A member of the RNA family "Group II catalytic intron D1-D4-6" from Novipirellula galeiformis, 270 nucleotides long. The family has 174 seed sequences and 1,617 matches in Rfam 15.1. The base pairs follow the family's consensus structure.

RNA sequence: UGAAUCCCGCCUGAGUAACUGUUAGCCACAGGCUCAGUAUCGAGUUUUGCAGGCGACGUAUAGACAUCAUCGGUUGAAGUCGUCGCUUGAAGCGUACACAGAAAGGUAGUGAGGAUGAAGCGAUCGUAGGUGGCCCUGCGACGCUGAAUGGAUGUUAGCCUCGAAAUUUGGUAACUGUCGGAUUCUGCCCAAGGCUUGUGCAUUCCUGAAGGCAACAUCGCUCGCAGCGCUAUCGGCAAGCUGCUAGCGGAGACCCGGGGUCGGCGGCCC
Numbered sequence: 001u002g003a004a005u006c007c008c009g010c011c012u013g014a015g016u017a018a019c020u021g022u023u024a025g026c027c028a029c030a031g032g033c034u035c036a037g038u039a040u041c042g043a044g045u046u047u048u049g050c051a052g053g054c055g056a057c058g059u060a061u062a063g064a065c066a067u068c069a070u071c072g073g074u075u076g077a078a079g080u081c082g083u084c085g086c087u088u089g090a091a092g093c094g095u096a097c098a099c100a101g102a103a104a105g106g107u108a109g110u111g112a113g114g115a116u117g118a119a120g121c122g123a124u125c126g127u128a129g130g131u132g133g134c135c136c137u138g139c140g141a142c143g144c145u146g147a148a149u150g151g152a153u154g155u156u157a158g159c160c161u162c163g164a165a166a167u168u169u170g171g172u173a174a175c176u177g178u179c180g181g182a183u184u185c186u187g188c189c190c191a192a193g194g195c196u197u198g199u200g201c202a203u204u205c206c207u208g209a210a211g212g213c214a215a216c217a218u219c220g221c222u223c224g225c226a227g228c229g230c231u232a233u234c235g236g237c238a239a240g241c242u243g244c245u246a247g248c249g250g251a252g253a254c255c256c257g258g259g260g261u262c263g264g265c266g267g268c269c270c
Stems, first nucleotide, its partner, number of pairs: 012036004019031004023239001025237002038104001040102002044099002047096001048094002050089009155264001158261006180255002184253003187213003192207003218250005224244005

Annotation:
Rfam links the family to the GO term Group II intron splicing. Lineage of the source: Bacteria > Pseudomonadati > Planctomycetia > Pirellulales > Novipirellula. The literature on the family includes a 2001 paper in Trends Genet by Bonen and Vogel, "The ins and outs of group II introns".